[Rfam]
RNA: Hairpin ribozyme 1 from viruses-like metatranscriptomes
RNA sequence: CAACUGUCCACGGAGGAUGUGUAUAGGAAAGAGAUCAUCUAUACAAACCUGAGCGCUUAAAUUAGCGUACGAAGUUUUACACUCGUUCUCGUUUAAAUCAGGAAUCAAGCGGAUUGUUUAUAUUAUAUAGACACAAUGCUUGACAUAGUUGAGAUUGAUCCUCUACAUUAGAGGUGAGAAGUUGAUGAGGGAAACAUCUCAGGUAUCUGAGAGCAUAUUAACUCAU
Numbered sequence: 001c002a003a004c005u006g007u008c009c010a011c012g013g014a015g016g017a018u019g020u021g022u023a024u025a026g027g028a029a030a031g032a033g034a035u036c037a038u039c040u041a042u043a044c045a046a047a048c049c050u051g052a053g054c055g056c057u058u059a060a061a062u063u064a065g066c067g068u069a070c071g072a073a074g075u076u077u078u079a080c081a082c083u084c085g086u087u088c089u090c091g092u093u094u095a096a097a098u099c100a101g102g103a104a105u106c107a108a109g110c111g112g113a114u115u116g117u118u119u120a121u122a123u124u125a126u127a128u129a130g131a132c133a134c135a136a137u138g139c140u141u142g143a144c145a146u147a148g149u150u151g152a153g154a155u156u157g158a159u160c161c162u163c164u165a166c167a168u169u170a171g172a173g174g175u176g177a178g179a180a181g182u183u184g185a186u187g188a189g190g191g192a193a194a195c196a197u198c199u200c201a202g203g204u205a206u207c208u209g210a211g212a213g214c215a216u217a218u219u220a221a222c223u224c225a226u
Stems, first nucleotide, its partner, number of pairs: 001184004009176003105143007185226005197212006